[Rfam]
RNA sequence: UGUAAGGCUUUCUAGUAUUCCCCCCUUUUUGAAGUUGACAAUCUGUUGCGGAUUGUCCUUUUUU
Numbered sequence: 001u002g003u004a005a006g007g008c009u010u011u012c013u014a015g016u017a018u019u020c021c022c023c024c025c026u027u028u029u030u031g032a033a034g035u036u037g038a039c040a041a042u043c044u045g046u047u048g049c050g051g052a053u054u055g056u057c058c059u060u061u062u063u064u
Stems, first nucleotide, its partner, number of pairs: 004027004037057009
Dot-bracket structure: ...((((................)))).........(((((((((...))))))))).......
The record is a 64-nucleotide sequence from Bacillus sp. 2_A_57_CT2, which matches "Bacillus sRNA ncr1241" in Rfam. For this family Rfam cites "Identification of regulatory RNAs in Bacillus subtilis" (Irnov et al., Nucleic Acids Res, 2010). The family's RNA type in Rfam is small RNA.